[Rfam]
RNA sequence: CGUGUAUCAAGAGUGAACGAGAGAACUGGCUCCUAGACUUCACAGCAACCUCCAAACGGAAAGGUGCUCCUACCAGCAAAGCUAUGCUUUGGUUGAUGAAAU
Numbered sequence: 001c002g003u004g005u006a007u008c009a010a011g012a013g014u015g016a017a018c019g020a021g022a023g024a025a026c027u028g029g030c031u032c033c034u035a036g037a038c039u040u041c042a043c044a045g046c047a048a049c050c051u052c053c054a055a056a057c058g059g060a061a062a063g064g065u066g067c068u069c070c071u072a073c074c075a076g077c078a079a080a081g082c083u084a085u086g087c088u089u090u091g092g093u094u095g096a097u098g099a100a101a102u
Base pairs, nucleotide, nucleotide: 003100005098006097007096008095013043014042015041016040017039021032022031023030026076027075028074029073044068045067046066047065049064050063051060052059053058072094077091078090079089080088081087082086
Record summary: The family of this 102-nucleotide RNA sequence from Peribacillus psychrosaccharolyticus is "SAM riboswitch aptamer (S box leader)". Rfam describes the family as follows. The SAM riboswitch is found upstream of a number of genes which code for proteins involved in methionine or cysteine biosynthesis in Gram-positive bacteria. The organism belongs to Peribacillus, within Bacteria. It scores 64 bits against the family's covariance model. Its family is annotated with regulation of gene expression in the Gene Ontology. The family's consensus secondary structure is taken from published work.